[Rfam]
RNA sequence: CGGCGCAGCAGGGUGCGGGAACACCCGGCAGCGCCUAACCAAAACCGCCUACACAGGAGGCAAGCAUGGCUUU
Numbered sequence: 001c002g003g004c005g006c007a008g009c010a011g012g013g014u015g016c017g018g019g020a021a022c023a024c025c026c027g028g029c030a031g032c033g034c035c036u037a038a039c040c041a042a043a044a045c046c047g048c049c050u051a052c053a054c055a056g057g058a059g060g061c062a063a064g065c066a067u068g069g070c071u072u073u
Base pairs, nucleotide, nucleotide: 002035003034004033005032006031008029009028011026012025013024014023039069040068041067047061048060049059050058052056
Dot-bracket structure: .(((((.((.((((........)))).)).)))))...(((.....((((.(...).)))).....)))....
Rfam assigns this 73-nucleotide RNA sequence from Gulbenkiania mobilis to the family "R1162-like plasmid antisense RNA". The match comes from Rfam's covariance-model search (69 bits). A reference for the family is Kim and Meyer (1986), "Copy-number of broad host-range plasmid R1162 is regulated by a small RNA", Nucleic Acids Res. The organism belongs to Gulbenkiania, within Bacteria. The copy-number of the broad host-range plasmid R1162 is controlled by the amounts of two proteins, encoded by cotranscribed genes comprising a region of the plasmid called RepI. RepI is negatively regulated by a 75 base RNA that is complementary to a segment of the RepI message. Gene Ontology term of the family: plasmid copy number maintenance.